[Rfam]
RNA sequence: AUGGCCAAUUUAGUGGCCGUUACCUCUGAGCUUGUAUGUCCAUAAAUUCAUCCAAAUUCAGAGGUAACGGCACACUACAUUAGGCUAC
Numbered sequence: 001a002u003g004g005c006c007a008a009u010u011u012a013g014u015g016g017c018c019g020u021u022a023c024c025u026c027u028g029a030g031c032u033u034g035u036a037u038g039u040c041c042a043u044a045a046a047u048u049c050a051u052c053c054a055a056a057u058u059c060a061g062a063g064g065u066a067a068c069g070g071c072a073c074a075c076u077a078c079a080u081u082a083g084g085c086u087a088c
Stems, first nucleotide, its partner, number of pairs: 002087005007081003011077005016071014032055003036051003
RNA: mir-8489 microRNA precursor family